[Rfam]
RNA sequence: UGACUUCAGUGAACAUUCAACGCUGUCGGUGAGUUUGCGCUUCAGACAGAAACCAUCGACCGUUGACUGUACCCUGAGGGUUA
Numbered sequence: 001u002g003a004c005u006u007c008a009g010u011g012a013a014c015a016u017u018c019a020a021c022g023c024u025g026u027c028g029g030u031g032a033g034u035u036u037g038c039g040c041u042u043c044a045g046a047c048a049g050a051a052a053c054c055a056u057c058g059a060c061c062g063u064u065g066a067c068u069g070u071a072c073c074c075u076g077a078g079g080g081u082u083a
Stems, first nucleotide, its partner, number of pairs: 001083003004079005014069002017066006025060007033053004
Shown here is an 83-nucleotide RNA sequence from Albula goreensis, a member of the family "mir-181 microRNA precursor family". A reference for the family is Ambros (2001), "microRNAs: tiny regulators with great potential", Cell. Lineage of the source: Eukaryota > Chordata > Craniata > Actinopteri > Albula. The family has 157 seed sequences and 3,490 matches in Rfam 15.1. Its family is annotated with RISC complex and miRNA-mediated post-transcriptional gene silencing in the Gene Ontology.